[Rfam]
RNA sequence: CUCACACCUAUGUGUGUAGGACCUCAAAUGAUCGUCAUUAAAUUUGGCAUAGAUCUCUAGAAAAGUUAUCAUGUGGGUGUGGGACUUGAUUUUUCUAGAGAUCUGUAUCAAAUUUAAUGGUGAUCCUUUGGGGUCAUGCACACAUAGGUGUGGG
Numbered sequence: 001c002u003c004a005c006a007c008c009u010a011u012g013u014g015u016g017u018a019g020g021a022c023c024u025c026a027a028a029u030g031a032u033c034g035u036c037a038u039u040a041a042a043u044u045u046g047g048c049a050u051a052g053a054u055c056u057c058u059a060g061a062a063a064a065g066u067u068a069u070c071a072u073g074u075g076g077g078u079g080u081g082g083g084a085c086u087u088g089a090u091u092u093u094u095c096u097a098g099a100g101a102u103c104u105g106u107a108u109c110a111a112a113u114u115u116a117a118u119g120g121u122g123a124u125c126c127u128u129u130g131g132g133g134u135c136a137u138g139c140a141c142a143c144a145u146a147g148g149u150g151u152g153g154g
Stems, first nucleotide, its partner, number of pairs: 002153012015140004020135009030125003034121014049106020069082005

The record is a 154-nucleotide RNA from Amborella trichopoda, which matches "MIR8565 microRNA precursor family" in Rfam. Taxonomically the source falls in Amborella (Eukaryota, Streptophytina, Spermatophyta, Magnoliopsida). Its family is annotated with RISC complex and miRNA-mediated post-transcriptional gene silencing in the Gene Ontology.